[Rfam]
RNA: mir-255 microRNA precursor family
Organism: Caenorhabditis briggsae
RNA sequence: GUAAGAAAUCUUUGUAGUUUUCCGCGAGUCAACGUGAAAACUGAAGAGAUUUUUUACAG
Numbered sequence: 001g002u003a004a005g006a007a008a009u010c011u012u013u014g015u016a017g018u019u020u021u022c023c024g025c026g027a028g029u030c031a032a033c034g035u036g037a038a039a040a041c042u043g044a045a046g047a048g049a050u051u052u053u054u055u056a057c058a059g
Stems, first nucleotide, its partner, number of pairs: 001057013015043008023034002